[Rfam]
RNA: RcsR1 sRNA
Organism: Martelella alba
RNA sequence: ACAUUGCAAAGUGGUGGUGGGUACGCUAGAGCGGCCACGAUCACGCAUGUCGAUUUGAUCAGGAUAAGCCGCCCAAGAACUGAGGCGGCUUUUUU
Numbered sequence: 001a002c003a004u005u006g007c008a009a010a011g012u013g014g015u016g017g018u019g020g021g022u023a024c025g026c027u028a029g030a031g032c033g034g035c036c037a038c039g040a041u042c043a044c045g046c047a048u049g050u051c052g053a054u055u056u057g058a059u060c061a062g063g064a065u066a067a068g069c070c071g072c073c074c075a076a077g078a079a080c081u082g083a084g085g086c087g088g089c090u091u092u093u094u095u
Stems, first nucleotide, its partner, number of pairs: 011044005017038001020036003024033003049059003066091008074082002